The record is a 103-nucleotide sequence from Vitreoscilla sp. C1, which matches "SAM-I/IV (S-adenosyl methionine) riboswitch aptamer" in Rfam. The literature on the family includes a 2008 paper in RNA by Weinberg et al., "The aptamer core of SAM-IV riboswitches mimics the ligand-binding site of SAM-I riboswitches".
RNA sequence: UUGAAUCAUCCAGAUUUGGUGCUAUGCACCAUGCCAACCUACCAACUCGGGCAAGGUGGACGUAAAGAUGAGGUUGAGUGAAUCAACAACAAAGCGAGUUUGU
Numbered sequence: 001u002u003g004a005a006u007c008a009u010c011c012a013g014a015u016u017u018g019g020u021g022c023u024a025u026g027c028a029c030c031a032u033g034c035c036a037a038c039c040u041a042c043c044a045a046c047u048c049g050g051g052c053a054a055g056g057u058g059g060a061c062g063u064a065a066a067g068a069u070g071a072g073g074u075u076g077a078g079u080g081a082a083u084c085a086a087c088a089a090c091a092a093a094g095c096g097a098g099u100u101u102g103u
Stems, first nucleotide, its partner, number of pairs: 006071005017031005034059002038056003042051002045099005073087004